[Rfam]
RNA sequence: GGGGGCGACAUGGCUUCGACGCCGGUGACAACCUCCUAGGUGCAUGCCGAGAGCGUGGUGUAUCUCGUAAAUCCAACAUCACAUUUAAAUAGUCGCAAACGACGAAAACUACGCUCAGGGCGCUCUGGCAGCUUAAAAACUGCUGGUAGUUAGCCUGGCCCCAAAGCGAUGUGCCUAUCCAUCGUGGAGGGGAGACGAGCUAAAGCUGAUAGGAUCGCGGUUGACGGCGCCUUCCCGUUAACCGUUAACACUUAGAAGGAUCGCGGUAUGGAAUCCUGCCCGUCGGAGUUCAUGCCGCUAAAUCAGAAGACGGACCUAAGCAUGUAGAGCCGAAGAGCGAGUACCGGCGGACGCGGGUUCAAUUCCCGCCGCCUCCACCA
Numbered sequence: 001g002g003g004g005g006c007g008a009c010a011u012g013g014c015u016u017c018g019a020c021g022c023c024g025g026u027g028a029c030a031a032c033c034u035c036c037u038a039g040g041u042g043c044a045u046g047c048c049g050a051g052a053g054c055g056u057g058g059u060g061u062a063u064c065u066c067g068u069a070a071a072u073c074c075a076a077c078a079u080c081a082c083a084u085u086u087a088a089a090u091a092g093u094c095g096c097a098a099a100c101g102a103c104g105a106a107a108a109c110u111a112c113g114c115u116c117a118g119g120g121c122g123c124u125c126u127g128g129c130a131g132c133u134u135a136a137a138a139a140c141u142g143c144u145g146g147u148a149g150u151u152a153g154c155c156u157g158g159c160c161c162c163a164a165a166g167c168g169a170u171g172u173g174c175c176u177a178u179c180c181a182u183c184g185u186g187g188a189g190g191g192g193a194g195a196c197g198a199g200c201u202a203a204a205g206c207u208g209a210u211a212g213g214a215u216c217g218c219g220g221u222u223g224a225c226g227g228c229g230c231c232u233u234c235c236c237g238u239u240a241a242c243c244g245u246u247a248a249c250a251c252u253u254a255g256a257a258g259g260a261u262c263g264c265g266g267u268a269u270g271g272a273a274u275c276c277u278g279c280c281c282g283u284c285g286g287a288g289u290u291c292a293u294g295c296c297g298c299u300a301a302a303u304c305a306g307a308a309g310a311c312g313g314a315c316c317u318a319a320g321c322a323u324g325u326a327g328a329g330c331c332g333a334a335g336a337g338c339g340a341g342u343a344c345c346g347g348c349g350g351a352c353g354c355g356g357g358u359u360c361a362a363u364u365c366c367c368g369c370c371g372c373c374u375c376c377a378c379c380a
Base pairs, nucleotide, nucleotide: 001376002375003374004373005372006371007370020349021348022347023346024345025344026343027342033337034336035335037333039331040330041329043324044323045322046321047320048067049066050065051064052063055082056081057080058079059078060077124148126146128143129142130141131140153200154199156197157196167184168183169182174213175212176211177210178209179208217245218244219243220242221241222240223239224238225237229261231259232258233257263298264297265296266295267294268293269292270291271290272289274287275286276285278316281313282311283310284309353369354368355367356366357365
The family of this 380-nucleotide sequence from Modicisalibacter xianhensis is "transfer-messenger RNA". The organism belongs to Modicisalibacter, within Bacteria. A search with the family's covariance model found it, with a score of 209 bits. It is annotated as a non-coding RNA gene. Pairs were carried over by alignment from the consensus structure, which is taken from published work.